[Rfam]
The family of this 144-nucleotide RNA sequence from Thermocatellispora tengchongensis is "c-di-AMP riboswitch aptamer (ydaO/yuaA leader)". Rfam's curators write: This family represents a conserved RNA structure found upstream of the ydaO and yuaA genes in Bacillus subtilis and related genes in other bacteria. Lineage of the source: Bacteria > Actinomycetota > Actinomycetes > Streptosporangiaceae > Thermocatellispora. It scores 83 bits against the family's covariance model.
RNA sequence: GAAGGCCGCACGCCGAAUUCCCGCCGCCGCACCUCGCGGGAAACCGGGGACCCACCGCAACCGGGGUGAAUCCGAGCGCCGCUCGGUAGGGCUGCUCCGGCCCGAACCCGUCAGCUAACCCGGUAGGCGUCGAUGAAAGGAGCU
Numbered sequence: 001g002a003a004g005g006c007c008g009c010a011c012g013c014c015g016a017a018u019u020c021c022c023g024c025c026g027c028c029g030c031a032c033c034u035c036g037c038g039g040g041a042a043a044c045c046g047g048g049g050a051c052c053c054a055c056c057g058c059a060a061c062c063g064g065g066g067u068g069a070a071u072c073c074g075a076g077c078g079c080c081g082c083u084c085g086g087u088a089g090g091g092c093u094g095c096u097c098c099g100g101c102c103c104g105a106a107c108c109c110g111u112c113a114g115c116u117a118a119c120c121c122g123g124u125a126g127g128c129g130u131c132g133a134u135g136a137a138a139g140g141a142g143c144u
Base pairs, nucleotide, nucleotide: 011129012128013127014126018042019041020040021039022038023037024036043124044123045122046121047120048119053063064109065108066107072086073085074084075083089103090102091101092100